[Rfam]
This 45-nucleotide sequence from Penaeus vannamei belongs to the Rfam family "Guanidine-II riboswitch aptamer (mini-ykkC)".
RNA sequence: GGUCGAGGACGGCCUCCAUCUCCAUCUCGGUUCGAGGACGGCCUC
Dot-bracket structure: (((.((((....)))).))).............((((....))))

Rfam links the family to the GO term regulation of gene expression. The base pairs follow the family's consensus structure, which is taken from published work. A search with the family's covariance model found it, with a score of 32 bits.